[Rfam]
RNA sequence: UGUAGGUAUUUUAUAUUUAAGAAGCAACUGUCUCUUGUACAGAUCGUUUAUUAAUCG
Numbered sequence: 001u002g003u004a005g006g007u008a009u010u011u012u013a014u015a016u017u018u019a020a021g022a023a024g025c026a027a028c029u030g031u032c033u034c035u036u037g038u039a040c041a042g043a044u045c046g047u048u049u050a051u052u053a054a055u056c057g
Stems, first nucleotide, its partner, number of pairs: 018037005024031002
RNA: Plastid-rps18 3UTR RNA
Organism: Amborella trichopoda